[Rfam]
RNA: Plastid-psbA-4 3UTR RNA
Organism: Itea chinensis
RNA sequence: AAAAUAAAGGAGCAAUAACCAAUUUCUUGUUCUUUCAAGAAACUUGUUAUUGCUCCUUUAU
Dot-bracket structure: .....((((((((((((...(..((((((......))))))..)...))))))))))))..